Rfam assigns this 172-nucleotide RNA from Paenalicyclobacillus cellulosilyticus to the family "Group II catalytic intron D1-D4-3".
RNA sequence: UCCGUCGCGAGGCGGAAUCUGAAGGAAGCCGGAGGCAAAACCCCGGCCUGAGGACCACGAACCCUAGGCGAGGCUGUUGCAUCCGGGCGAGUCUGCAAAACAAGACGAAGCCCCAUACAGCCAAGGGAUGCAGCAGUAAAUUGGGCAGGCACAUGGGGUGAAAGUUAUCGUC
Numbered sequence: 001u002c003c004g005u006c007g008c009g010a011g012g013c014g015g016a017a018u019c020u021g022a023a024g025g026a027a028g029c030c031g032g033a034g035g036c037a038a039a040a041c042c043c044c045g046g047c048c049u050g051a052g053g054a055c056c057a058c059g060a061a062c063c064c065u066a067g068g069c070g071a072g073g074c075u076g077u078u079g080c081a082u083c084c085g086g087g088c089g090a091g092u093c094u095g096c097a098a099a100a101c102a103a104g105a106c107g108a109a110g111c112c113c114c115a116u117a118c119a120g121c122c123a124a125g126g127g128a129u130g131c132a133g134c135a136g137u138a139a140a141u142u143g144g145g146c147a148g149g150c151a152c153a154u155g156g157g158g159u160g161a162a163a164g165u166u167a168u169c170g171u172c
Stems, first nucleotide, its partner, number of pairs: 001016006028172001030170003035165002040159006046150005062145003066141001073137003077133007085113004091106004